[Rfam]
RNA sequence: GGCAGGAGGAAACAAAAUGAACGGAGUUCAUUUUCUUAUAAAUGUUUCCGACGUUUAGCCACUGACCGAAGGGAGGGGCAAUACAAAGA
Numbered sequence: 001g002g003c004a005g006g007a008g009g010a011a012a013c014a015a016a017a018u019g020a021a022c023g024g025a026g027u028u029c030a031u032u033u034u035c036u037u038a039u040a041a042a043u044g045u046u047u048c049c050g051a052c053g054u055u056u057a058g059c060c061a062c063u064g065a066c067c068g069a070a071g072g073g074a075g076g077g078g079c080a081a082u083a084c085a086a087a088g089a
Base pairs, nucleotide, nucleotide: 008049009048010047011046012045013044016032017031018030019029020028021027058079059078060077062075066072067071
GA-cis RNA: an 89-nucleotide RNA sequence. Rfam classes the family as a small RNA. The family's consensus secondary structure is taken from published work. It is one of the family's seed sequences.